RNA: MIR9563 microRNA precursor family
Organism: Brassica rapa
RNA sequence: GUAAUAUAAAAUACGGUUUGUUAGCUUUUAACUAAAAAGUCUAAGAAACAUCUCUUAUAUAUAUUAUUUAAGAGAUGUUUCUUAGGUUUUUUAGUUAAAAGCUAAGAGAUUGUAUCUUAUAUUAC
Numbered sequence: 001g002u003a004a005u006a007u008a009a010a011a012u013a014c015g016g017u018u019u020g021u022u023a024g025c026u027u028u029u030a031a032c033u034a035a036a037a038a039g040u041c042u043a044a045g046a047a048a049c050a051u052c053u054c055u056u057a058u059a060u061a062u063a064u065u066a067u068u069u070a071a072g073a074g075a076u077g078u079u080u081c082u083u084a085g086g087u088u089u090u091u092u093a094g095u096u097a098a099a100a101g102c103u104a105a106g107a108g109a110u111u112g113u114a115u116c117u118u119a120u121a122u123u124a125c
Stems, first nucleotide, its partner, number of pairs: 001125009011115009021105019041085007